[Rfam]
RNA sequence: UCCUUAUCAAGAGCGAUGGAGGGUAUGGGCCCGAUGAAAUCCGGCAACCAGUAUUUAUACAAGGUGCUAAAUCCCACAGAACUAUGUUCUGAGAGAUGAGGU
Numbered sequence: 001u002c003c004u005u006a007u008c009a010a011g012a013g014c015g016a017u018g019g020a021g022g023g024u025a026u027g028g029g030c031c032c033g034a035u036g037a038a039a040u041c042c043g044g045c046a047a048c049c050a051g052u053a054u055u056u057a058u059a060c061a062a063g064g065u066g067c068u069a070a071a072u073c074c075c076a077c078a079g080a081a082c083u084a085u086g087u088u089c090u091g092a093g094a095g096a097u098g099a100g101g102u
Base pairs, nucleotide, nucleotide: 002101003100004099005098006097007096008095013042015041016040017039021032022031023030026076027075028074029073043068044067045066046065048064049063051060052059053058072094077091078090079089080088081087082086